[Rfam]
The record is an 87-nucleotide sequence from Salisediminibacterium halotolerans, which matches "BsrC" in Rfam. On this family, see Saito et al., Gene 2008: "Novel small RNA-encoding genes in the intergenic regions of Bacillus subtilis". A search with the family's covariance model found it, with a score of 61 bits. Taxonomically the source falls in Salisediminibacterium (Bacteria, Bacillati, Bacillota, Bacillaceae). The family has 29 seed sequences and 572 matches in Rfam 15.1.
RNA sequence: UGGUUCUUAAAUAAUGAAAGCCCUGCCUCUCUUUCAUCCUUGCGGUCCUUGUAACCGCGCCAGUGGAAAUAAGGCAUCGUAUAUUGU
Number, nucleotide and partner (000 for none) at each position: 001u000002g000003g000004u000005u000006c000007u000008u000009a000010a000011a000012u000013a000014a000015u000016g000017a000018a000019a000020g000021c000022c000023c000024u000025g000026c000027c000028u000029c000030u000031c000032u000033u000034u067035c066036a000037u000038c000039c063040u062041u059042g058043c057044g056045g055046u054047c000048c000049u000050u000051g000052u000053a000054a046055c045056c044057g043058c042059g041060c000061c000062a040063g039064u000065g000066g035067a034068a000069a000070u000071a000072a000073g000074g000075c000076a000077u000078c000079g000080u000081a000082u000083a000084u000085u000086g000087u000